[Rfam]
RNA: U1 spliceosomal RNA
RNA sequence: UGACUUACCUGGCAGGGGAGAUACCAUGAUUAUGAAGGUGGUUUUCCCAGGGUGAGUCUUAUCCAUUGCACUCUGGAUGUGCACCCUGUGAUUUCCCCAAAUGUGGGAAAUUCGACUGCAUAAUUUGUAGGGCUGCAUUUGUGCUCUCCCUGA
Numbered sequence: 001u002g003a004c005u006u007a008c009c010u011g012g013c014a015g016g017g018g019a020g021a022u023a024c025c026a027u028g029a030u031u032a033u034g035a036a037g038g039u040g041g042u043u044u045u046c047c048c049a050g051g052g053u054g055a056g057u058c059u060u061a062u063c064c065a066u067u068g069c070a071c072u073c074u075g076g077a078u079g080u081g082c083a084c085c086c087u088g089u090g091a092u093u094u095c096c097c098c099a100a101a102u103g104u105g106g107g108a109a110a111u112u113c114g115a116c117u118g119c120a121u122a123a124u125u126u127g128u129a130g131g132g133c134u135g136c137a138u139u140u141g142u143g144c145u146c147u148c149c150c151u152g153a
Base pairs, nucleotide, nucleotide: 012119013118014117015116016048017047018046019045020044021043023042024041025040026039027038049087050086051085052084060079061078062077063076064075089114090113091112092110093109094108096106097105128152129151130150131149132148135144136143137142